[Rfam]
A member of the RNA family "MIR159 microRNA precursor family" from Acer yangbiense, 197 nucleotides long. The source organism's lineage runs through Eukaryota, Embryophyta, Magnoliopsida, eudicotyledons and Acer. The match comes from Rfam's covariance-model search (122 bits).

RNA sequence: GAAGAAGUGAAGGAGCUCUCUUCAGUCCAGUUCUAGGCAGUGAAGAGGCUGGCACUUAGCUGCUGAGUCGUUGGUUCAAGAGCUCAUCAUGAAAUUAUUUUAUUAAAAAUGGUGUGUUUCUGAUCCAACGAAGCAGGAGCUCAGUUCAGUUUUCGCUGUCAUGUCUUGGACUGAAGGGAGCUCCCUCUCUUAUAUAU
Dot-bracket structure: ............((((((((..(((((((......(.......................((.(((...((((....(............................................)....))))...))).))....................)......)))))))..))))))))..............